[Rfam]
RNA sequence: GCAAUCUCAAGCUCGCGCACGGCAACGCGGUGGUGUUCCGCUCGCUGCUGGGCAUCAGCUGGAUGUGGUUCUUCGGCGCGGUGUUCCUGUCGCAGUUCCCCAGCUUCGCCAAGGAGGUGCUG
Number, nucleotide and partner (000 for none) at each position: 001g000002c000003a000004a000005u000006c000007u000008c000009a000010a049011g048012c047013u000014c044015g043016c000017g041018c040019a000020c000021g037022g036023c035024a034025a000026c032027g000028c000029g000030g000031u000032g026033g000034u024035g023036u022037u021038c000039c000040g018041c017042u000043c015044g014045c000046u000047g012048c011049u010050g000051g121052g120053c119054a118055u117056c000057a000058g000059c113060u112061g000062g110063a105064u000065g000066u000067g099068g098069u000070u000071c095072u094073u000074c092075g091076g090077c089078g088079c000080g087081g086082u000083g000084u000085u000086c081087c080088u078089g077090u076091c075092g074093c000094a072095g071096u000097u000098c068099c067100c000101c000102a000103g000104c000105u063106u000107c000108g000109c000110c062111a000112a060113g059114g000115a000116g000117g055118u054119g053120c052121u051122g000
About this RNA:
This 122-nucleotide RNA from Ramlibacter tataouinensis belongs to the Rfam family "Burkholderia RNA 11". NCBI's taxonomy places the organism under Bacteria, Pseudomonadati, Pseudomonadota, Betaproteobacteria, Ramlibacter. Gene Ontology term of the family: protein binding. On this family, see Ramos et al., Genomics 2013: "Experimental identification of small non-coding regulatory RNAs in the opportunistic human pathogen Burkholderia cenocepacia J2315".